[Rfam]
A member of the RNA family "Acido-Lenti-1 RNA" from Fimbriiglobus ruber, 46 nucleotides long. Lineage of the source: Bacteria > Pseudomonadati > Planctomycetota > Gemmatales > Fimbriiglobus. The base pairs follow the family's consensus structure, which is taken from published work.
RNA sequence: CCCAGGGCUGACGGCCUGGGCUAUUUUCUGCCGCCUCUUCGAGGCU
Numbered sequence: 001c002c003c004a005g006g007g008c009u010g011a012c013g014g015c016c017u018g019g020g021c022u023a024u025u026u027u028c029u030g031c032c033g034c035c036u037c038u039u040c041g042a043g044g045c046u
Base pairs, nucleotide, nucleotide: 001020002019003018004017005016006015008013033045034044035043036042037041

Rfam 15.1 lists 2,607 matches to the family in 171 species.